This 100-nucleotide RNA from Aminomonas paucivorans belongs to the Rfam family "Bacterial small signal recognition particle RNA". Rfam links the family to the GO terms signal recognition particle, plasma membrane targeting and SRP-dependent cotranslational protein targeting to membrane, signal sequence recognition. It is annotated as a non-coding RNA gene. Pairs were carried over by alignment from the consensus structure, which is taken from published work. Rfam's curators write: The signal recognition particle (SRP) is a universally conserved ribonucleoprotein involved in the co-translational targeting of proteins to membranes. The literature on the family includes a 2009 paper in RNA Biol by Rosenblad et al., "Kinship in the SRP RNA family".

[Rfam]
RNA sequence: GAUCCAGUCCCGUGCGGCGAAAUCCCGUGAACCCCGCCAGGUCCGGAAGGAAGCAACGGUAAGCGGAUCGUUUCGGGCGCCACGGGGUCGCUGGGUCCCC
Numbered sequence: 001g002a003u004c005c006a007g008u009c010c011c012g013u014g015c016g017g018c019g020a021a022a023u024c025c026c027g028u029g030a031a032c033c034c035c036g037c038c039a040g041g042u043c044c045g046g047a048a049g050g051a052a053g054c055a056a057c058g059g060u061a062a063g064c065g066g067a068u069c070g071u072u073u074c075g076g077g078c079g080c081c082a083c084g085g086g087g088u089c090g091c092u093g094g095g096u097c098c099c100c
Stems, first nucleotide, its partner, number of pairs: 004094005009086006015077001018075005025066004034059003042051003